[Rfam]
RNA sequence: AUGCGGAGUAUACGCAUGAACUCUGACUGGACGCCGUGCUCUGGUGUACUUCCCCGAUAUCAGAGCAUGGAGCGUACCAGUCAGGGCUCUGUGUAGACCCCGCCUUUAC
Numbered sequence: 001a002u003g004c005g006g007a008g009u010a011u012a013c014g015c016a017u018g019a020a021c022u023c024u025g026a027c028u029g030g031a032c033g034c035c036g037u038g039c040u041c042u043g044g045u046g047u048a049c050u051u052c053c054c055c056g057a058u059a060u061c062a063g064a065g066c067a068u069g070g071a072g073c074g075u076a077c078c079a080g081u082c083a084g085g086g087c088u089c090u091g092u093g094u095a096g097a098c099c100c101c102g103c104c105u106u107u108a109c
Stems, first nucleotide, its partner, number of pairs: 011095006018089002021086010031075004035069013

mraW RNA: a 109-nucleotide RNA from Corynebacterium diphtheriae. The organism belongs to Corynebacterium, within Bacteria. The family's RNA type in Rfam is cis-regulatory element.